[Rfam]
Nucleotides: 180
Stems, first nucleotide, its partner, number of pairs: 011167004018039008040162006050088001089147003097123004126141004
Number, partner (000 for none) and nucleotide at each position: 001000c002000a003000g004000g005000a006000g007000g008000a009000a010000u011167g012166g013165c014164c015000u016000a017000a018039g019038g020037c021036a022035c023034c024033c025032g026000u027000g028000c029000g030000a031000u032025c033024g034023g035022g036021u037020g038019u039018u040162g041161c042160g043159g044158g045157g046000g047000a048000c049000c050088c051000a052000a053000c054000g055000g056000a057000c058000g059000c060000g061000c062000g063000a064000g065000g066000u067000g068000a069000u070000u071000g072000u073000c074000g075000c076000c077000u078000c079000c080000g081000c082000g083000g084000u085000c086000c087000a088050g089147g090146g091145g092000c093000g094000a095000a096000u097123c098122c099121g100120c101000c102000g103000g104000a105000g106000c107000c108000c109000g110000g111000a112000c113000g114000g115000c116000g117000a118000a119000g120100g121099c122098g123097g124000a125000c126141g127140a128139g129138g130000a131000c132000u133000u134000c135000c136000a137000a138129u139128c140127u141126c142000g143000a144000g145091c146090c147089c148000g149000u150000c151000a152000g153000c154000u155000a156000a157045c158044c159043c160042c161041g162040u163000c164014g165013g166012c167011c168000g169000u170000u171000g172000g173000a174000a175000g176000g177000a178000u179000g180000u